[Rfam]
RNA sequence: GCCCCAGAACCGCGAGAAACGGCCUCUUGCGGAUCGGGUAAUUUAAAAUAAAGGAG
Numbered sequence: 001g002c003c004c005c006a007g008a009a010c011c012g013c014g015a016g017a018a019a020c021g022g023c024c025u026c027u028u029g030c031g032g033a034u035c036g037g038g039u040a041a042u043u044u045a046a047a048a049u050a051a052a053g054g055a056g
Stems, first nucleotide, its partner, number of pairs: 003038003007035002010032008
Dot-bracket structure: ..(((.((.((((((((.......)))))))).)))))..................
This 56-nucleotide RNA sequence belongs to the Rfam family "L20-Deltaproteobacteria ribosomal protein leader". Rfam's curators put it in the seed alignment. For this family Rfam cites "Discovery of 20 novel ribosomal leader candidates in bacteria and archaea" (Eckert and Weinberg, BMC Microbiol, 2020).